[Rfam]
Nucleotides: 449
Base pairs, nucleotide, nucleotide: 021182022181023180024179025178026177027176028175029174030173031172032171034167035166036165037164075131076130077129078128079127089123090122091121092120093119094118095117096116097115106161107160108159109158110157111156112154113153114152191360192359194357195356196355197354213346214345215344216343217342218339219338220337221336234329235328236327237326238325239324240323245320246319247318248317249316267292268291269290270289271288273287274286275285276284294306295305296304297303372441373440374439375438379434380433381432382431383430399427400426401425402424405420406419407418408417
Number, partner (000 for none) and nucleotide at each position: 001000a002000a003000u004000c005000a006000g007000c008000g009000u010000u011000u012000a013000a014000a015000g016000c017000u018000c019000a020000a021182u022181g023180u024179g025178g026177a027176c028175g029174g030173a031172g032171g033000u034167c035166u036165c037164u038000g039000u040000u041000u042000c043000g044000c045000u046000a047000a048000c049000c050000c051000u052000a053000a054000u055000a056000c057000a058000c059000u060000g061000g062000c063000u064000u065000c066000a067000g068000g069000g070000c071000g072000a073000u074000g075131g076130c077129u078128c079127u080000u081000c082000g083000c084000g085000g086000c087000g088000g089123u090122g091121c092120c093119u094118g095117u096116u097115g098000u099000u100000u101000u102000a103000c104000u105000u106161g107160c108159u109158g110157a111156c112154u113153u114152u115097c116096a117095g118094c119093g120092g121091g122090c123089a124000c125000g126000g127079a128078g129077a130076g131075c132000a133000a134000g135000c136000g137000u138000a139000g140000a141000c142000g143000a144000c145000g146000a147000c148000u149000a150000a151000a152114a153113a154112a155000c156111g157110u158109c159108a160107g161106c162000u163000g164037g165036g166035a167034g168000a169000c170000u171032c172031c173030u174029c175028c176027g177026u178025u179024c180023g181022c182021a183000c184000a185000g186000c187000c188000c189000g190000a191360c192359c193000u194357g195356c196355u197354c198000c199000a200000u201000u202000g203000c204000c205000c206000a207000a208000g209000a210000g211000c212000c213346c214345c215344g216343g217342g218339u219338u220337u221336u222000c223000u224000c225000u226000g227000u228000g229000g230000a231000a232000u233000g234329u235328a236327u237326c238325a239324g240323g241000c242000g243000c244000u245320c246319c247318c248317c249316g250000g251000u252000c253000u254000g255000u256000c257000u258000g259000u260000c261000u262000g263000g264000g265000g266000c267292c268291g269290c270289g271288g272000u273287c274286g275285g276284c277000a278000u279000c280000a281000u282000c283000u284276g285275c286274u287273g288271u289270c290269g291268c292267g293000a294306a295305g296304a297303g298000u299000u300000c301000g302000u303297c304296u305295c306294u307000g308000u309000u310000a311000g312000c313000c314000c315000u316249u317248g318247g319246g320245g321000g322000c323240c324239c325238u326237g327236g328235u329234g330000c331000g332000g333000a334000g335000u336221g337220g338219a339218g340000a341000g342217u343216c344215c345214g346213g347000g348000u349000c350000u351000g352000g353000g354197g355196g356195g357194u358000c359192g360191g361000g362000a363000g364000a365000a366000c367000a368000a369000a370000a371000g372441g373440g374439g375438g376000c377000g378000c379434g380433c381432u382431g383430g384000u385000g386000c387000u388000c389000a390000g391000g392000c393000u394000c395000a396000g397000u398000c399427a400426u401425g402424c403000u404000u405420u406419c407418c408417c409000u410000u411000a412000g413000u414000u415000g416000u417408g418407g419406g420405a421000u422000a423000u424402g425401c426400g427399u428000g429000u430383u431382c432381a433380g434379c435000c436000a437000g438375u439374c440373c441372c442000c443000g444000a445000c446000a447000u448000g449000u
The record is a 449-nucleotide RNA sequence, which matches "Vertebrate telomerase RNA" in Rfam. By type it is a non-coding RNA gene. The family has 37 seed sequences and 523 matches in Rfam 15.1. Rfam describes the family as follows. Telomerase is a ribonucleoprotein reverse transcriptase that synthesises telomeric DNA. Telomerase RNAs differ greatly in sequence and structure between vertebrates, ciliates and yeasts, but they share a 5' pseudoknot structure close to the template sequence. Vertebrate telomerase RNAs have a 3' H/ACA snoRNA-like domain. Gene Ontology terms of the family: telomere maintenance via telomerase, telomerase catalytic core complex and telomerase activity.